[Rfam]
The record is a 226-nucleotide RNA from Streptomyces boluensis, which matches "Actinobacteria sRNA Ms_IGR-5" in Rfam. It scores 65 bits against the family's covariance model. By type it is a small RNA. On this family, see Li et al., RNA 2013: "Identification of small RNAs in Mycobacterium smegmatis using heterologous Hfq". The organism belongs to Streptomyces, within Bacteria.
RNA sequence: ACUUCGGAAAGGAGGUGGUUCGGCAGAUGUAUGCAAACCGGACGGAAGAGGUGGCUGCGGGCUGACGGCCCGUUGUCGCACUCAGUGCGGUGCCGGACCGGCGUGCUGACACAGCACGCAGCCGGCCAAUUCCAACGCAGUCACCGCGAUCCGCGGGCCGCCGGUACGUCCGGCCGGCUUCCCGCCGCCCAGUGCGGCCGGAACCAUGGCCCGCGGAUCGUCUGCG
Numbered sequence: 001a002c003u004u005c006g007g008a009a010a011g012g013a014g015g016u017g018g019u020u021c022g023g024c025a026g027a028u029g030u031a032u033g034c035a036a037a038c039c040g041g042a043c044g045g046a047a048g049a050g051g052u053g054g055c056u057g058c059g060g061g062c063u064g065a066c067g068g069c070c071c072g073u074u075g076u077c078g079c080a081c082u083c084a085g086u087g088c089g090g091u092g093c094c095g096g097a098c099c100g101g102c103g104u105g106c107u108g109a110c111a112c113a114g115c116a117c118g119c120a121g122c123c124g125g126c127c128a129a130u131u132c133c134a135a136c137g138c139a140g141u142c143a144c145c146g147c148g149a150u151c152c153g154c155g156g157g158c159c160g161c162c163g164g165u166a167c168g169u170c171c172g173g174c175c176g177g178c179u180u181c182c183c184g185c186c187g188c189c190c191a192g193u194g195c196g197g198c199c200g201g202a203a204c205c206a207u208g209g210c211c212c213g214c215g216g217a218u219c220g221u222c223u224g225c226g
Stems, first nucleotide, its partner, number of pairs: 015058005060127005066121001068119002073114003147220013160178006